[Rfam]
RNA: Trypanosomatid snoRNA TB11Cs4H2
RNA sequence: AAGGCGCGCUUUGAGACCCACCGCCUCGCAGCAGUGGGCGCGUGGGUGCAUCAGCGCCCCGAGA
Numbered sequence: 001a002a003g004g005c006g007c008g009c010u011u012u013g014a015g016a017c018c019c020a021c022c023g024c025c026u027c028g029c030a031g032c033a034g035u036g037g038g039c040g041c042g043u044g045g046g047u048g049c050a051u052c053a054g055c056g057c058c059c060c061g062a063g064a
Base pairs, nucleotide, nucleotide: 003060004059006057008055016047017046018045019044020043021042022040023039024038025037026036